[Rfam]
Nucleotides: 148
Stems, first nucleotide, its partner, number of pairs: 003146005008139001015027003031100002033047004042098002050076003080096005102131003
Number, partner (000 for none) and nucleotide at each position: 001000u002000a003146g004145u005144g006143c007142u008139c009000c010000g011000g012000g013000g014000u015027u016026g017025g018000u019000g020000a021000g022000a023000g024000u025017c026016c027015a028000a029000a030000c031100c032099g033047g034046c035045g036044g037000u038000g039000a040000g041000a042098g043097u044036c045035c046034g047033c048000g049000a050076g051075c052074c053000c054000g055000u056000c057000c058000u059000u060000u061000u062000u063000c064000g065000a066000a067000a068000a069000g070000g071000a072000g073000g074052g075051g076050u077000u078000g079000a080096g081095c082094c083093g084092g085000u086000g087000a088000a089000a090000u091000u092084c093083c094082g095081g096080c097043a098042c099032c100031g101000a102131c103130g104129g105000u106000u107000a108000u109000g110000g111000g112000u113000c114000c115000u116000g117000c118000g119000g120000g121000a122000u123000u124000c125000g126000a127000g128000u129104c130103c131102g132000g133000a134000u135000g136000a137000g138000a139008g140000g141000u142007a143006g144005c145004a146003c147000a148000c